[Rfam]
RNA sequence: GGAGUGUUAUGAUAAAGUAGCUUCGUGCUAUUUUGUCUAGCUCUGUGUGUUUCCCCUUCGCCAAAUAUGGUUGUAAGGGG
Numbered sequence: 001g002g003a004g005u006g007u008u009a010u011g012a013u014a015a016a017g018u019a020g021c022u023u024c025g026u027g028c029u030a031u032u033u034u035g036u037c038u039a040g041c042u043c044u045g046u047g048u049g050u051u052u053c054c055c056c057u058u059c060g061c062c063a064a065a066u067a068u069g070g071u072u073g074u075a076a077g078g079g080g
Stems, first nucleotide, its partner, number of pairs: 002043004011037003016032006053080006